[Rfam]
RNA: mir-3473 microRNA precursor family
RNA sequence: ACCGCUAAGCCAUCUCUCCAGCCCUCUUUUGAGUGUUUUAAAAUUUUCAUUGUGGGGCUGGAGAGAUGGCUUAGCGGU
Numbered sequence: 001a002c003c004g005c006u007a008a009g010c011c012a013u014c015u016c017u018c019c020a021g022c023c024c025u026c027u028u029u030u031g032a033g034u035g036u037u038u039u040a041a042a043a044u045u046u047u048c049a050u051u052g053u054g055g056g057g058c059u060g061g062a063g064a065g066a067u068g069g070c071u072u073a074g075c076g077g078u
Stems, first nucleotide, its partner, number of pairs: 002077023